This 189-nucleotide RNA from Prevotella sp. CAG:474 belongs to the Rfam family "Bacteroidales-1 6S-Bacteroidales RNA suggested".
It is annotated as a small RNA.
Rfam describes the family as follows. Bacteroidales-1 was first reported in a comparative genomics-based approach of genome and metagenome sequences from Weinberg et al. 2010 In a high-resolution transcriptome map study of Bacteroides thetaiotaomicron, Ryan et al. 2020 report this sRNA as 6S RNA homologue of Bacteroides, in the study they obtain evidence of small product RNAs (pRNAs) related to 6S function.
A reference for the family is Ryan et al. (2020), "A high-resolution transcriptome map identifies small RNA regulation of metabolism in the gut microbe Bacteroides thetaiotaomicron", Nat Commun.
[Rfam]
RNA sequence: GGUUGCACCGAUUCGAUCGGGAUAGUCAUCACAUUUAAAACAAUUACCGAGAAAGCUCCUCUUGUCAAUGGCGGGCCAUAUAAACUCCCUCAAGGGAACUAAGUCGAAAGACCGGUGGAUUACAAAGGCGGAGGGCUCUCAAAUCUUAUUUACUCGGACUUAUCAUCACAUCAUCGUGCAACCCCUUCU
Numbered sequence: 001g002g003u004u005g006c007a008c009c010g011a012u013u014c015g016a017u018c019g020g021g022a023u024a025g026u027c028a029u030c031a032c033a034u035u036u037a038a039a040a041c042a043a044u045u046a047c048c049g050a051g052a053a054a055g056c057u058c059c060u061c062u063u064g065u066c067a068a069u070g071g072c073g074g075g076c077c078a079u080a081u082a083a084a085c086u087c088c089c090u091c092a093a094g095g096g097a098a099c100u101a102a103g104u105c106g107a108a109a110g111a112c113c114g115g116u117g118g119a120u121u122a123c124a125a126a127g128g129c130g131g132a133g134g135g136c137u138c139u140c141a142a143a144u145c146u147u148a149u150u151u152a153c154u155c156g157g158a159c160u161u162a163u164c165a166u167c168a169c170a171u172c173a174u175c176g177u178g179c180a181a182c183c184c185c186u187u188c189u
Base pairs, nucleotide, nucleotide: 055136056135057134059133060132062131063130064129065128066127069124070123076118077117078116079115087096088095089094103112104111105110